[Rfam]
RNA sequence: GUGCGGACGGGCUGCGUGGGCGGGUCGGUCCGUCCUGGCACAUCUAACCCUAAAUGCGCGCUGGUUGAAGUGGCUUCUCCUGGGCGAUCGCUCGCUGUUUUUGUGGCUGGCUUUCAGCGGGCUGGAGGAGCCGGGAGCGGAGGCGGAGGACCGAGCCAAAAACGUCAGCCGAGGCCGGGCGGCCCCGCUCGUGGCCCGUCCGCACUGUCCGGGCCAGGCCCCGGCCCGAACCCCCUGGAGACAACUCCCGCAGGGUCUGCGCUGCGCCGCGGAGCCCCGGCUGCCCACGUAGAGGCGGCGGCCGUCUCGGGGCCCCUGCGUGCGGGGCGCCCACUGCGGCCGCCAAGAGCUCGUCUCUGUCAGCCUCGGGUGCACGUGGGCCCGCGGUCGAGCCCUAAGGCCGGGCGUGGGGCUGGGGUCGCAGGGAGAGUAACCGUGAGCCGGCGCCCAGCCUUCAGGGCGCUCCCUCGAGCUAUGGGAGCUGCCCCCGGGCACGGCUCGGACACCC
Numbered sequence: 001g002u003g004c005g006g007a008c009g010g011g012c013u014g015c016g017u018g019g020g021c022g023g024g025u026c027g028g029u030c031c032g033u034c035c036u037g038g039c040a041c042a043u044c045u046a047a048c049c050c051u052a053a054a055u056g057c058g059c060g061c062u063g064g065u066u067g068a069a070g071u072g073g074c075u076u077c078u079c080c081u082g083g084g085c086g087a088u089c090g091c092u093c094g095c096u097g098u099u100u101u102u103g104u105g106g107c108u109g110g111c112u113u114u115c116a117g118c119g120g121g122c123u124g125g126a127g128g129a130g131c132c133g134g135g136a137g138c139g140g141a142g143g144c145g146g147a148g149g150a151c152c153g154a155g156c157c158a159a160a161a162a163c164g165u166c167a168g169c170c171g172a173g174g175c176c177g178g179g180c181g182g183c184c185c186c187g188c189u190c191g192u193g194g195c196c197c198g199u200c201c202g203c204a205c206u207g208u209c210c211g212g213g214c215c216a217g218g219c220c221c222c223g224g225c226c227c228g229a230a231c232c233c234c235c236u237g238g239a240g241a242c243a244a245c246u247c248c249c250g251c252a253g254g255g256u257c258u259g260c261g262c263u264g265c266g267c268c269g270c271g272g273a274g275c276c277c278c279g280g281c282u283g284c285c286c287a288c289g290u291a292g293a294g295g296c297g298g299c300g301g302c303c304g305u306c307u308c309g310g311g312g313c314c315c316c317u318g319c320g321u322g323c324g325g326g327g328c329g330c331c332c333a334c335u336g337c338g339g340c341c342g343c344c345a346a347g348a349g350c351u352c353g354u355c356u357c358u359g360u361c362a363g364c365c366u367c368g369g370g371u372g373c374a375c376g377u378g379g380g381c382c383c384g385c386g387g388u389c390g391a392g393c394c395c396u397a398a399g400g401c402c403g404g405g406c407g408u409g410g411g412g413c414u415g416g417g418g419u420c421g422c423a424g425g426g427a428g429a430g431u432a433a434c435c436g437u438g439a440g441c442c443g444g445c446g447c448c449c450a451g452c453c454u455u456c457a458g459g460g461c462g463c464u465c466c467c468u469c470g471a472g473c474u475a476u477g478g479g480a481g482c483u484g485c486c487c488c489c490g491g492g493c494a495c496g497g498c499u500c501g502g503a504c505a506c507c508c
Stems, first nucleotide, its partner, number of pairs: 022185005028180005034174003077130004090122008106169006112162003188425002191422004254402005259395001261393002276380004283371004297344009309332003346358004438500004443495001446493004458487005464480004
A member of the RNA family "Vertebrate telomerase RNA", 508 nucleotides long. Telomerase is a ribonucleoprotein reverse transcriptase that synthesises telomeric DNA. Telomerase RNAs differ greatly in sequence and structure between vertebrates, ciliates and yeasts, but they share a 5' pseudoknot structure close to the template sequence. Vertebrate telomerase RNAs have a 3' H/ACA snoRNA-like domain. The family's RNA type in Rfam is non-coding RNA gene. The base pairs follow the family's consensus structure, which is taken from published work. For this family Rfam cites "Secondary structure of vertebrate telomerase RNA" (Chen et al., Cell, 2000). Rfam links the family to the GO terms telomere maintenance via telomerase, telomerase activity and telomerase catalytic core complex.